RNA sequence: UCACUCGUUGUGGUAUCUUCUGGUACUCAACAAUUUCCUCGGCUCGCCUUCCGAAAGGAAGGGAUCGAGAUGAAAGCGUGGUUUUUAUGGAUGUCUUUUGUCCGCGCGUUAUUGCCCUCCUUACCCGCAUUUACACCGCAUGAUGGAGAGGAUACAAAAACUAGUCCUCGUU
Numbered sequence: 001u002c003a004c005u006c007g008u009u010g011u012g013g014u015a016u017c018u019u020c021u022g023g024u025a026c027u028c029a030a031c032a033a034u035u036u037c038c039u040c041g042g043c044u045c046g047c048c049u050u051c052c053g054a055a056a057g058g059a060a061g062g063g064a065u066c067g068a069g070a071u072g073a074a075a076g077c078g079u080g081g082u083u084u085u086u087a088u089g090g091a092u093g094u095c096u097u098u099u100g101u102c103c104g105c106g107c108g109u110u111a112u113u114g115c116c117c118u119c120c121u122u123a124c125c126c127g128c129a130u131u132u133a134c135a136c137c138g139c140a141u142g143a144u145g146g147a148g149a150g151g152a153u154a155c156a157a158a159a160a161c162u163a164g165u166c167c168u169c170g171u172u
Base pairs, nucleotide, nucleotide: 007031008030012027013026014025015024016023017022036073037072038069039068040067041066042065043062044061052057090166091165092164093161094160096159097158098157099156100155101154115151116150117148118147119146120145128142129141132140134138
The record is a 172-nucleotide part of an RNA from Pochonia chlamydosporia, which matches "Ascomycota telomerase RNA" in Rfam. For this family Rfam cites "The common ancestral core of vertebrate and fungal telomerase RNAs" (Qi et al., Nucleic Acids Res, 2013). The organism belongs to Pochonia chlamydosporia, within Eukaryota. Rfam links the family to the GO terms telomerase activity, telomerase catalytic core complex and telomere maintenance via telomerase.